[Rfam]
SAM riboswitch aptamer (S box leader): a 112-nucleotide RNA sequence from Caldalkalibacillus thermarum.
RNA sequence: CUCUUAUCCAGAGAGGUGGAGGGACUGGCCCGAUGAAACCCGGCAACCGCCAGACAGGGUCUGGAAAGGUGCCAAUUCCUGCGAAGAUGUAAAAGUCUUCGAGAGAUGAGAG
Numbered sequence: 001c002u003c004u005u006a007u008c009c010a011g012a013g014a015g016g017u018g019g020a021g022g023g024a025c026u027g028g029c030c031c032g033a034u035g036a037a038a039c040c041c042g043g044c045a046a047c048c049g050c051c052a053g054a055c056a057g058g059g060u061c062u063g064g065a066a067a068g069g070u071g072c073c074a075a076u077u078c079c080u081g082c083g084a085a086g087a088u089g090u091a092a093a094a095g096u097c098u099u100c101g102a103g104a105g106a107u108g109a110g111a112g
Stems, first nucleotide, its partner, number of pairs: 001112008013041001015040003021031003025081001027079002042073004047069002050064003077104001082101006
Rfam links the family to the GO term regulation of gene expression. The family's consensus secondary structure is taken from published work.